Overview:
This 89-nucleotide RNA sequence from Quercus lobata belongs to the Rfam family "Small nucleolar RNA R12". Its family is annotated with nucleolus and RNA processing in the Gene Ontology. A search with the family's covariance model found it, with a score of 77 bits. snoR12 is a C/D box small nucleolar RNA, which acts as a methylation guide for 25S ribosomal RNA in plants. snoR12 has been alternatively named snoZ44 in Arabidopsis and snoZ131 in rice. Pairs were carried over by alignment from the consensus structure, which was predicted with PFOLD. The organism belongs to Quercus, within Eukaryota.
RNA sequence: UGUUGGAUGAUGAAAAGAAUCAUUCGGAUUCCCAAUGAUAUUUUCUUUGCCGAAAUAUGUGAUAUCCUAACCAGCUACUUCUGACAACA
Numbered sequence: 001u002g003u004u005g006g007a008u009g010a011u012g013a014a015a016a017g018a019a020u021c022a023u024u025c026g027g028a029u030u031c032c033c034a035a036u037g038a039u040a041u042u043u044u045c046u047u048u049g050c051c052g053a054a055a056u057a058u059g060u061g062a063u064a065u066c067c068u069a070a071c072c073a074g075c076u077a078c079u080u081c082u083g084a085c086a087a088c089a
Stems, first nucleotide, its partner, number of pairs: 001089005